The record is a 72-nucleotide sequence from Equus caballus, which matches "mir-1301 microRNA precursor family" in Rfam. Rfam's curators put it in the seed alignment.
[Rfam]
RNA sequence: UGUGGGGGGUCACUCUAGGCACCGCAGCACUGUGCUGGGGAUGUUGCAGCUGCCUGGGAGUGAUUUCACACA
Numbered sequence: 001u002g003u004g005g006g007g008g009g010u011c012a013c014u015c016u017a018g019g020c021a022c023c024g025c026a027g028c029a030c031u032g033u034g035c036u037g038g039g040g041a042u043g044u045u046g047c048a049g050c051u052g053c054c055u056g057g058g059a060g061u062g063a064u065u066u067c068a069c070a071c072a
Stems, first nucleotide, its partner, number of pairs: 001072004006067010016056006022049001024047006030040002